[Rfam]
A member of the RNA family "Mammalian CPEB3 ribozyme" from Alligator mississippiensis, 80 nucleotides long. The base pairs follow the family's consensus structure, which is taken from published work. The source organism's lineage runs through Eukaryota, Metazoa, Gnathostomata, Euteleostomi and Alligator. A reference for the family is Salehi-Ashtiani et al. (2006), "A genomewide search for ribozymes reveals an HDV-like sequence in the human CPEB3 gene", Science. The match comes from Rfam's covariance-model search (37 bits).
RNA sequence: AGAGGUUGCAAGUUUGAGGCCACAGCAGAUGUGCUCAUGGUGUGGCAAUGUCAGAUUGCAAUGAAUCUGUGGAUUCUGCU
Dot-bracket structure: ............[[....[[[..((((((.(((.......)))]]]]]...((((((......)))))).....))))))
Numbered sequence: 001a002g003a004g005g006u007u008g009c010a011a012g013u014u015u016g017a018g019g020c021c022a023c024a025g026c027a028g029a030u031g032u033g034c035u036c037a038u039g040g041u042g043u044g045g046c047a048a049u050g051u052c053a054g055a056u057u058g059c060a061a062u063g064a065a066u067c068u069g070u071g072g073a074u075u076c077u078g079c080u
Stems, first nucleotide, its partner, number of pairs: 013048002019046003024080006031043003052069006